[Rfam]
RNA sequence: GAAUAGUCCAGAGGAGUGACACUUAGAACACAGGGUGGGUUUAAGGAAAAAAAUGCACUGUGUGUUCUCAGGUCACCCCUUUGGAACACCU
Dot-bracket structure: ......((..((((.((((.....((((((((............................))))))))....)))).))))..))......
A member of the RNA family "MIR398 microRNA precursor family" from Rhododendron simsii, 91 nucleotides long. The literature on the family includes a 2005 paper in Plant Physiol by Xie et al., "Expression of Arabidopsis MIRNA genes". Gene Ontology terms of the family: RISC complex and miRNA-mediated post-transcriptional gene silencing. A search with the family's covariance model found it, with a score of 66 bits.